[Rfam]
Shown here is a 320-nucleotide RNA from Smithornis capensis, a member of the family "7SK RNA". NCBI's taxonomy places the organism under Eukaryota, Dipnotetrapodomorpha, Saurischia, Passeriformes, Smithornis. The base pairs follow the family's consensus structure, which is taken from published work. The literature on the family includes a 1991 paper in Mol Cell Biol by Wassarman and Steitz, "Structural analyses of the 7SK ribonucleoprotein (RNP), the most abundant human small RNP of unknown function". The family is grouped with related families in Rfam's "7SK clan". The family's RNA type in Rfam is non-coding RNA gene.
RNA sequence: CGAUGUGAGGGUGAUCUGGCUGUGACAUCUGUCAGCCCAUGGAUCACCAGGGUUGAUUGAGCUGAGCUGGCUGGCUGGAUGGGUGUCCCCUUCCUCAACGCUCCAUGAGCGUCCCUCCCAAAGCUGUGUGCUCAGUCAAAGAAGAUUGUCUCCCUGAUGGAGACGGUACCAUUCAUCGGUCAAGCGCACACAGUAGCUGUGCUCCCCUGCUAGAACCUCCAAACAAGCUCAAGGUGUUGAAAAUCUGUGUGCAGAAUCUCCUCUAUCCUGCCCUUGACGGUUACUUUUAUUUCUAUGUAGUUGGUGUACAGAACUGCCAA
Numbered sequence: 001c002g003a004u005g006u007g008a009g010g011g012u013g014a015u016c017u018g019g020c021u022g023u024g025a026c027a028u029c030u031g032u033c034a035g036c037c038c039a040u041g042g043a044u045c046a047c048c049a050g051g052g053u054u055g056a057u058u059g060a061g062c063u064g065a066g067c068u069g070g071c072u073g074g075c076u077g078g079a080u081g082g083g084u085g086u087c088c089c090c091u092u093c094c095u096c097a098a099c100g101c102u103c104c105a106u107g108a109g110c111g112u113c114c115c116u117c118c119c120a121a122a123g124c125u126g127u128g129u130g131c132u133c134a135g136u137c138a139a140a141g142a143a144g145a146u147u148g149u150c151u152c153c154c155u156g157a158u159g160g161a162g163a164c165g166g167u168a169c170c171a172u173u174c175a176u177c178g179g180u181c182a183a184g185c186g187c188a189c190a191c192a193g194u195a196g197c198u199g200u201g202c203u204c205c206c207c208u209g210c211u212a213g214a215a216c217c218u219c220c221a222a223a224c225a226a227g228c229u230c231a232a233g234g235u236g237u238u239g240a241a242a243a244u245c246u247g248u249g250u251g252c253a254g255a256a257u258c259u260c261c262u263c264u265a266u267c268c269u270g271c272c273c274u275u276g277a278c279g280g281u282u283a284c285u286u287u288u289a290u291u292u293c294u295a296u297g298u299a300g301u302u303g304g305u306g307u308a309c310a311g312a313a314c315u316g317c318c319a320a
Base pairs, nucleotide, nucleotide: 002103003102006097007096008095009094010093011092018090019089024087025086026085027084028083029082030081031080032079033078036073037070038069039068042067044065045064047061112166113165115162116161117160118135121132123131124130136157137156138155144152145151196258198256202254203253205251207249218241220239285320286319289315291313292312293311294308295307296306297305298304